[Rfam]
RNA: Makes More Granules Regulator RNA (mmgR)
Organism: Enterovirga rhinocerotis
RNA sequence: UGCUGCUGCCCUCCUUGGGCGUUUCCUCCCUAGACUUGGGCCGCCCCACCGGGCGGCCUUUUUUCUGCGCGCU
Number, nucleotide and partner (000 for none) at each position: 001u000002g000003c000004u000005g000006c000007u000008g020009c019010c018011c017012u000013c000014c000015u000016u000017g011018g010019g009020c008021g000022u000023u000024u000025c000026c000027u000028c000029c000030c000031u000032a000033g000034a000035c000036u000037u000038g000039g058040g057041c056042c055043g054044c053045c052046c051047c000048a000049c000050c000051g046052g045053g044054c043055g042056g041057c040058c039059u000060u000061u000062u000063u000064u000065c000066u000067g000068c000069g000070c000071g000072c000073u000